[Rfam]
RNA sequence: CAGUUAAAAAGCUCGUAGUUGGAUUUGUGGCGCGGCCGUCCGGCGGGGCUCCUUCAUUGGGGCCGUUUGUCUGGUUUUUCGGCCGCUCCAUUCUCGGGUAGUGUGUCGCUGGCAUUAGGUUGUCGGCUUCUUCACGCCCGUCGUUUACUGUGAAAAAAUUAGAGUGUUCAAAGCAGGCUUAGGCCAUUGGAUACAUUAGCAUGGAAUAAUGAGAUAGGGCCACGACGGUCUAUUUUGUUGGUUUGCACGUUGUGGUAAUGAUUAACAGGAACGGUUGGGGGUAUUCGUAUUCAAUUGUCAGAGGUGAAAUUCUUGGAUUUAUGGAAGACGAACUACUGCGAAAGCAUUUACCAAGGAUGUUUUCAUUAAUCAAGAACGAAAGUUAGGGGAUCGAAGAUGAUUAGAUACCAUCGUAGUCUUAACCAUAAACUAUGCCGACUAGGGAUUGGCGGUCGUUAAUUCAAGGACUCCGUCAGCACCUUCCGAGAAAUCAAAGUCUUUGGGUUCCGGGGGGAGUAUGGUCGCAAGGCUGAAACUUAAAGAAAU
Numbered sequence: 001c002a003g004u005u006a007a008a009a010a011g012c013u014c015g016u017a018g019u020u021g022g023a024u025u026u027g028u029g030g031c032g033c034g035g036c037c038g039u040c041c042g043g044c045g046g047g048g049c050u051c052c053u054u055c056a057u058u059g060g061g062g063c064c065g066u067u068u069g070u071c072u073g074g075u076u077u078u079u080c081g082g083c084c085g086c087u088c089c090a091u092u093c094u095c096g097g098g099u100a101g102u103g104u105g106u107c108g109c110u111g112g113c114a115u116u117a118g119g120u121u122g123u124c125g126g127c128u129u130c131u132u133c134a135c136g137c138c139c140g141u142c143g144u145u146u147a148c149u150g151u152g153a154a155a156a157a158a159u160u161a162g163a164g165u166g167u168u169c170a171a172a173g174c175a176g177g178c179u180u181a182g183g184c185c186a187u188u189g190g191a192u193a194c195a196u197u198a199g200c201a202u203g204g205a206a207u208a209a210u211g212a213g214a215u216a217g218g219g220c221c222a223c224g225a226c227g228g229u230c231u232a233u234u235u236u237g238u239u240g241g242u243u244u245g246c247a248c249g250u251u252g253u254g255g256u257a258a259u260g261a262u263u264a265a266c267a268g269g270a271a272c273g274g275u276u277g278g279g280g281g282u283a284u285u286c287g288u289a290u291u292c293a294a295u296u297g298u299c300a301g302a303g304g305u306g307a308a309a310u311u312c313u314u315g316g317a318u319u320u321a322u323g324g325a326a327g328a329c330g331a332a333c334u335a336c337u338g339c340g341a342a343a344g345c346a347u348u349u350a351c352c353a354a355g356g357a358u359g360u361u362u363u364c365a366u367u368a369a370u371c372a373a374g375a376a377c378g379a380a381a382g383u384u385a386g387g388g389g390a391u392c393g394a395a396g397a398u399g400a401u402u403a404g405a406u407a408c409c410a411u412c413g414u415a416g417u418c419u420u421a422a423c424c425a426u427a428a429a430c431u432a433u434g435c436c437g438a439c440u441a442g443g444g445a446u447u448g449g450c451g452g453u454c455g456u457u458a459a460u461u462c463a464a465g466g467a468c469u470c471c472g473u474c475a476g477c478a479c480c481u482u483c484c485g486a487g488a489a490a491u492c493a494a495a496g497u498c499u500u501u502g503g504g505u506u507c508c509g510g511g512g513g514g515a516g517u518a519u520g521g522u523c524g525c526a527a528g529g530c531u532g533a534a535a536c537u538u539a540a541a542g543a544a545a546u
Stems, first nucleotide, its partner, number of pairs: 001509001003507001009506001011377001013375002018370003268364004272359002275356002280352004286330002290326003294322002297319001301312003338345002382423006392416001396412004434505003437498003441481003446476007455468003485492002511538003520531004
This 546-nucleotide part of an RNA from Ectocarpus sp. CCAP 1310/34 belongs to the Rfam family "Eukaryotic small subunit ribosomal RNA". Taxonomically the source falls in Ectocarpus (Eukaryota, Stramenopiles, Ochrophyta, Ectocarpales). It scores 1781 bits against the family's covariance model. The family's consensus secondary structure is taken from published work.